[Rfam]
RNA: SAM riboswitch aptamer (S box leader)
RNA sequence: CUCUUAUCAAGAGAGGCGGAGGGACUGGCCCUGCGAAGCCCGGCAACCGUUAACUAACAACGCAUGUUAGUUAAAAAGGUGCCAAUUCCUGCAAAACACUUAGUGUUUUGGAUGAUAAGAG
Numbered sequence: 001c002u003c004u005u006a007u008c009a010a011g012a013g014a015g016g017c018g019g020a021g022g023g024a025c026u027g028g029c030c031c032u033g034c035g036a037a038g039c040c041c042g043g044c045a046a047c048c049g050u051u052a053a054c055u056a057a058c059a060a061c062g063c064a065u066g067u068u069a070g071u072u073a074a075a076a077a078g079g080u081g082c083c084a085a086u087u088c089c090u091g092c093a094a095a096a097c098a099c100u101u102a103g104u105g106u107u108u109u110g111g112a113u114g115a116u117a118a119g120a121g
Base pairs, nucleotide, nucleotide: 001121002120003119004118005117006116007115008114013041015040016039017038021031022030023029025091027089028088042083043082044081045080047079048078050074051073052072053071054070055069056068057067058066092110093109094108095107096106097105